Annotation: Betaproteobacteria toxic small RNA: a 68-nucleotide RNA from Glaciimonas soli. Rfam describes the family as follows. Overexpression in amino aid rich medium attenuates growth, suggesting role in repressing amino acid intake and metabolism. It scores 57 bits against the family's covariance model.
RNA sequence: UGUCUCCUCCAACACCUCCUAAGGUUUGGAUUUAGCCCGCAUCGACUUAAGUCUGCGGGCUUUUUUUU
Numbered sequence: 001u002g003u004c005u006c007c008u009c010c011a012a013c014a015c016c017u018c019c020u021a022a023g024g025u026u027u028g029g030a031u032u033u034a035g036c037c038c039g040c041a042u043c044g045a046c047u048u049a050a051g052u053c054u055g056c057g058g059g060c061u062u063u064u065u066u067u068u
Base pairs, nucleotide, nucleotide: 008030009029010028011027012026014025015024016023034061035060036059037058038057039056040055041054